RNA sequence: UGGAGGAAUCUGUUAAGCUCAGGAGGGAUAGCGCCAUGGAUAAACCCCCUUGAUACUGAUCAUAUUGUUGAUUGGUUCUGAUUCUCUGUAGCGCUGUCCAUCCUGAGUUUCACUGGUUCUUCUU
Numbered sequence: 001u002g003g004a005g006g007a008a009u010c011u012g013u014u015a016a017g018c019u020c021a022g023g024a025g026g027g028a029u030a031g032c033g034c035c036a037u038g039g040a041u042a043a044a045c046c047c048c049c050u051u052g053a054u055a056c057u058g059a060u061c062a063u064a065u066u067g068u069u070g071a072u073u074g075g076u077u078c079u080g081a082u083u084c085u086c087u088g089u090a091g092c093g094c095u096g097u098c099c100a101u102c103c104u105g106a107g108u109u110u111c112a113c114u115g116g117u118u119c120u121u122c123u124u
Base pairs, nucleotide, nucleotide: 010115016109017108018107019106020105021104022103023102024101026099027098028097029096030095031094032093033092034091
RNA: MIR390 microRNA precursor family
Organism: Morella rubra